Nucleotides: 219
Base pairs, nucleotide, nucleotide: 014058015057016056017055018054019053059123060122061121062120064118067114068113069112070111072109141213142212143211144210145209146208147207148206149205150204151203152202155172156171157170158169160167
Number, partner (000 for none) and nucleotide at each position: 001000a002000c003000a004000c005000g006000u007000g008000a009000a010000g011000g012000g013000a014058g015057g016056u017055g018054g019053u020000c021000c022000a023000a024000a025000g026000u027000u028000g029000g030000a031000u032000a033000g034000c035000a036000a037000c038000g039000g040000g041000a042000c043000u044000c045000g046000u047000g048000a049000g050000g051000u052000g053019g054018c055017u056016g057015u058014c059123c060122g061121c062120u063000a064118g065000c066000c067114g068113c069112u070111g071000u072109c073000c074000u075000c076000g077000a078000c079000a080000g081000c082000u083000u084000g085000u086000c087000u088000a089000a090000c091000c092000a093000a094000g095000c096000g097000u098000u099000g100000a101000g102000a103000c104000c105000g106000u107000g108000u109072g110000g111070c112069a113068g114067c115000g116000g117000u118064c119000c120062g121061g122060c123059g124000a125000a126000a127000a128000c129000u130000a131000g132000g133000c134000a135000g136000c137000c138000a139000u140000c141213c142212g143211a144210c145209c146208c147207c148206c149205g150204g151203g152202g153000a154000u155172c156171c157170g158169g159000c160167c161000u162000u163000g164000u165000c166000c167160g168000a169158c170157c171156g172155g173000a174000c175000c176000a177000c178000g179000a180000c181000u182000c183000g184000c185000u186000u187000c188000g189000c190000g191000u192000g193000c194000g195000u196000g197000g198000a199000a200000g201000c202152c203151c204150c205149c206148g207147g208146g209145g210144g211143u212142c213141g214000a215000c216000c217000u218000a219000u